[Rfam]
This 589-nucleotide part of an RNA from Tichowtungia aerotolerans belongs to the Rfam family "Bacterial small subunit ribosomal RNA". Taxonomically the source falls in Tichowtungia (Bacteria, Pseudomonadati, Tichowtungiales, Tichowtungiaceae).
RNA sequence: UGACGGGGGCCCGCACAAGCGGUGGAGCAUGUGGCUUAAUUCGAUGCAACGCGAAGAACCUUACCAGGGCUUGACAUGAUACUGCAUACCACCCGAAAGGGAGGUAGCCUUCGAGGGUGUAUCACAGGUGCUGCAUGGCUGUCGUCAGCUCGUGCCGUGAGGUGUUGGGUUAAGUCCCGCAACGAGCGCAACCCCUAUGUUUAUUUGCCAGCACGUAAUGGUGGGAACUCUAAACAGACUGCCUGUGAAAGCAGGAGGAAGGUGGGGAUGACGUCAAGUCAGUAUGGUCCUUAUGUCCUGGGCUGCACACGUGCUACAAUGGGUGGUACAGAAGGAAGCAAGACCGCGAGGUGGAGCAAAUCCUCAAAACCAUCCCCAGUUCGGAUUGGAGUCUGAAAUUCGACUCCAUGAAGUUGGAAUCGCUAGUAAAGGCGUAUCAGCUACGACGCCUUGAAUACGUUCCCGGGCCUUGUACACACCGCCCGUCACAUCAUGGAAGUCUGCUGUACCCGAAGUCGCUGAUCUAACCAAUUACUUGGAGGAAGGCGCCGAAGGUGUGGCCGAUGACUGGGAUGAAGUCGUAACAAGG
Numbered sequence: 001u002g003a004c005g006g007g008g009g010c011c012c013g014c015a016c017a018a019g020c021g022g023u024g025g026a027g028c029a030u031g032u033g034g035c036u037u038a039a040u041u042c043g044a045u046g047c048a049a050c051g052c053g054a055a056g057a058a059c060c061u062u063a064c065c066a067g068g069g070c071u072u073g074a075c076a077u078g079a080u081a082c083u084g085c086a087u088a089c090c091a092c093c094c095g096a097a098a099g100g101g102a103g104g105u106a107g108c109c110u111u112c113g114a115g116g117g118u119g120u121a122u123c124a125c126a127g128g129u130g131c132u133g134c135a136u137g138g139c140u141g142u143c144g145u146c147a148g149c150u151c152g153u154g155c156c157g158u159g160a161g162g163u164g165u166u167g168g169g170u171u172a173a174g175u176c177c178c179g180c181a182a183c184g185a186g187c188g189c190a191a192c193c194c195c196u197a198u199g200u201u202u203a204u205u206u207g208c209c210a211g212c213a214c215g216u217a218a219u220g221g222u223g224g225g226a227a228c229u230c231u232a233a234a235c236a237g238a239c240u241g242c243c244u245g246u247g248a249a250a251g252c253a254g255g256a257g258g259a260a261g262g263u264g265g266g267g268a269u270g271a272c273g274u275c276a277a278g279u280c281a282g283u284a285u286g287g288u289c290c291u292u293a294u295g296u297c298c299u300g301g302g303c304u305g306c307a308c309a310c311g312u313g314c315u316a317c318a319a320u321g322g323g324u325g326g327u328a329c330a331g332a333a334g335g336a337a338g339c340a341a342g343a344c345c346g347c348g349a350g351g352u353g354g355a356g357c358a359a360a361u362c363c364u365c366a367a368a369a370c371c372a373u374c375c376c377c378a379g380u381u382c383g384g385a386u387u388g389g390a391g392u393c394u395g396a397a398a399u400u401c402g403a404c405u406c407c408a409u410g411a412a413g414u415u416g417g418a419a420u421c422g423c424u425a426g427u428a429a430a431g432g433c434g435u436a437u438c439a440g441c442u443a444c445g446a447c448g449c450c451u452u453g454a455a456u457a458c459g460u461u462c463c464c465g466g467g468c469c470u471u472g473u474a475c476a477c478a479c480c481g482c483c484c485g486u487c488a489c490a491u492c493a494u495g496g497a498a499g500u501c502u503g504c505u506g507u508a509c510c511c512g513a514a515g516u517c518g519c520u521g522a523u524c525u526a527a528c529c530a531a532u533u534a535c536u537u538g539g540a541g542g543a544a545g546g547c548g549c550c551g552a553a554g555g556u557g558u559g560g561c562c563g564a565u566g567a568c569u570g571g572g573a574u575g576a577a578g579u580c581g582u583a584a585c586a587a588g589g
Base pairs, nucleotide, nucleotide: 001476002475003473004472005471007470008469009468010467011466012465013464015460016459019423020422021421022420023419024317026315027314028313029312030311031310032309033308034306035305040055041054042053043052064301065300066299067298068297069296070295077124078123079122080121081120082119088105089104090103092101093100094099107118108117109116110115127290128289130288131287132286133285136284137283138279139278140277141275143273144272148187149186150185151184152183153182154163155162156161166179167178168177169176193267194266195265196264198236199235200234201233202232203231208225209224212223213222214221239258240257242255243254244253245252246251321375322374323373324372325371326370327369333364334363335362338357339356343352344351345350382413387408388407389406390405391404392403393402429452430451431450432449433448434447435446479588481585484581485580489575490574491573492572494570495569496568499565500564501563503561504560505559506558507557508556509555510554515550517548518547519546520545523543524542525541528539529538530537531536